[Rfam]
RNA sequence: GGCGCCAGCGCGGGCAACGGAAUCCCAAAAGCAGCUGUCCUCUCUGUGCCCAGCUGCCGUGGGGUUUCGUUACUCGCGCUCCACCCC
Numbered sequence: 001g002g003c004g005c006c007a008g009c010g011c012g013g014g015c016a017a018c019g020g021a022a023u024c025c026c027a028a029a030a031g032c033a034g035c036u037g038u039c040c041u042c043u044c045u046g047u048g049c050c051c052a053g054c055u056g057c058c059g060u061g062g063g064g065u066u067u068c069g070u071u072a073c074u075c076g077c078g079c080u081c082c083a084c085c086c087c
Base pairs, nucleotide, nucleotide: 009078010077011076012075013074017070018069019068020067021066022065023064024063025062028060031057032056033055034054035053036052037051

Record summary
The record is an 87-nucleotide RNA from Pardalotus punctatus, which matches "mir-191 microRNA precursor family" in Rfam. For this family Rfam cites "Identification of many microRNAs that copurify with polyribosomes in mammalian neurons" (Kim et al., Proc Natl Acad Sci U S A, 2004). Its family is annotated with RISC complex and miRNA-mediated post-transcriptional gene silencing in the Gene Ontology.